[Rfam]
RNA: M-box riboswitch aptamer (ykoK leader)
Organism: Bacillus cereus
RNA sequence: UUUAUAACCUGUUAGGUGAGGCUCCUAUACAAACACAGGCUAUUGCCCAAAAAUAUCGAAAGAUGCCAAUGGGUAGAACAGGAAUUGUCGGAUUAAGGCUCUUCUUAAGAUAGCUAAGUGAUGAAUGAUUCAUCCUUUACGUUGUAUAGUGCCAAAACUCAACUAGGGGGGAAUGAG
Numbered sequence: 001u002u003u004a005u006a007a008c009c010u011g012u013u014a015g016g017u018g019a020g021g022c023u024c025c026u027a028u029a030c031a032a033a034c035a036c037a038g039g040c041u042a043u044u045g046c047c048c049a050a051a052a053a054u055a056u057c058g059a060a061a062g063a064u065g066c067c068a069a070u071g072g073g074u075a076g077a078a079c080a081g082g083a084a085u086u087g088u089c090g091g092a093u094u095a096a097g098g099c100u101c102u103u104c105u106u107a108a109g110a111u112a113g114c115u116a117a118g119u120g121a122u123g124a125a126u127g128a129u130u131c132a133u134c135c136u137u138u139a140c141g142u143u144g145u146a147u148a149g150u151g152c153c154a155a156a157a158c159u160c161a162a163c164u165a166g167g168g169g170g171g172a173a174u175g176a177g
Base pairs, nucleotide, nucleotide: 005173008170009169010168011163012162013096015159016158017157020153021152022151025149026148027147028146029145030144031143032142039114040113041112042111043110045074046073047072048071049070054065055064056063057062081105082104083103084102087099088098089097116137117136118135